[Rfam]
This 51-nucleotide RNA sequence belongs to the Rfam family "Glutamine riboswitch aptamer (glnA leader)". The family's consensus secondary structure is taken from published work. Rfam links the family to the GO term glutamine binding.
RNA sequence: CACGUUCAUCUCGAAAGAGACGGAAGUAGACGAUAGUCGAAGGAACGCAUG
Numbered sequence: 001c002a003c004g005u006u007c008a009u010c011u012c013g014a015a016a017g018a019g020a021c022g023g024a025a026g027u028a029g030a031c032g033a034u035a036g037u038c039g040a041a042g043g044a045a046c047g048c049a050u051g
Stems, first nucleotide, its partner, number of pairs: 003047005009020004023048001029038003